[Rfam]
RNA sequence: CUUCCUGAGGAGCGCUGCGACGGGCGCAGGCGGGCCAAGCUGGCGUUCGCUGCCCCGCUAGGCUCAGGAACCAUCAGCAUUCAACGGCGCUCAUCAUCU
Numbered sequence: 001c002u003u004c005c006u007g008a009g010g011a012g013c014g015c016u017g018c019g020a021c022g023g024g025c026g027c028a029g030g031c032g033g034g035c036c037a038a039g040c041u042g043g044c045g046u047u048c049g050c051u052g053c054c055c056c057g058c059u060a061g062g063c064u065c066a067g068g069a070a071c072c073a074u075c076a077g078c079a080u081u082c083a084a085c086g087g088c089g090c091u092c093a094u095c096a097u098c099u
Base pairs, nucleotide, nucleotide: 002070003069004068005067006066007065008064021057022056023055024054
Rfam assigns this 99-nucleotide RNA sequence from Pusillimonas noertemannii to the family "SAH (S-adenosyl-L-homocysteine) riboswitch aptamer". NCBI's taxonomy places the organism under Bacteria, Pseudomonadota, Betaproteobacteria, Alcaligenaceae, Pusillimonas. The base pairs follow the family's consensus structure, which is taken from published work. Gene Ontology terms of the family: S-adenosylhomocysteine metabolic process and regulation of gene expression.